The family of this 127-nucleotide RNA from Leptidea sinapis is "U4atac minor spliceosomal RNA". The family's consensus secondary structure is taken from published work. By type it is a spliceosomal small nuclear RNA. Rfam 15.1 lists 1,648 matches to the family in 818 species. Rfam's curators write: U4atac is an essential component of the minor U12-type spliceosome complex which is required for removal of the rarer class of eukaryotic introns (AT-AC, U12-type).
[Rfam]
RNA sequence: GACUUCCUUGUCUCGGGGAGCAUAGUGCACAGUGAUCGUAAAGUGAGGGCACUGAUGCUGACACCCACUGGUUAAACCAUCCCGCGCCCGGCUGCCGUAAGGGAGUCCGAGCGCAAUUUUUUAAAAG
Number, nucleotide and partner (000 for none) at each position: 001g000002a000003c000004u000005u019006c018007c017008u016009u015010g000011u000012c000013u000014c000015g009016g008017g007018g006019a005020g058021c057022a056023u055024a053025g052026u051027g050028c049029a000030c047031a000032g000033u000034g000035a000036u000037c043038g000039u000040a000041a000042a000043g037044u000045g000046a000047g030048g000049g028050c027051a026052c025053u024054g000055a023056u022057g021058c020059u000060g000061a000062c000063a000064c000065c000066c000067a000068c000069u000070g000071g000072u000073u000074a000075a000076a000077c000078c000079a000080u000081c000082c000083c000084g114085c113086g112087c111088c000089c109090g106091g000092c000093u103094g000095c102096c101097g000098u000099a000100a000101g096102g095103g093104a000105g000106u090107c000108c000109g089110a000111g087112c086113g085114c084115a000116a000117u000118u000119u000120u000121u000122u000123a000124a000125a000126a000127g000